RNA sequence: AUGGACAUGAGGAUCCUUUCCCCAAAUGAUCGACGGUGAUUAUGCUAUGCGUAACUUUAAUCCUUUAUCAGAAGAUUCCAAGCCAUAAAUCUGAUCCAA
Numbered sequence: 001a002u003g004g005a006c007a008u009g010a011g012g013a014u015c016c017u018u019u020c021c022c023c024a025a026a027u028g029a030u031c032g033a034c035g036g037u038g039a040u041u042a043u044g045c046u047a048u049g050c051g052u053a054a055c056u057u058u059a060a061u062c063c064u065u066u067a068u069c070a071g072a073a074g075a076u077u078c079c080a081a082g083c084c085a086u087a088a089a090u091c092u093g094a095u096c097c098a099a
Stems, first nucleotide, its partner, number of pairs: 002098004
RNA: Small nucleolar RNA Z103